[Rfam]
RNA sequence: GUGGCCGUAGCUCAAUAGGCAGAGCUCUGGAUUGUGGCUCCAGCGGUUGUGGGUUCAAGCCCCAUCGGUCACC
Numbered sequence: 001g002u003g004g005c006c007g008u009a010g011c012u013c014a015a016u017a018g019g020c021a022g023a024g025c026u027c028u029g030g031a032u033u034g035u036g037g038c039u040c041c042a043g044c045g046g047u048u049g050u051g052g053g054u055u056c057a058a059g060c061c062c063c064a065u066c067g068g069u070c071a072c073c
Base pairs, nucleotide, nucleotide: 001072002071003070004069005068006067007066010025011024012023013022027043028042029041030040031039049065050064051063052062053061
RNA: tRNA
Organism: Ktedonospora formicarum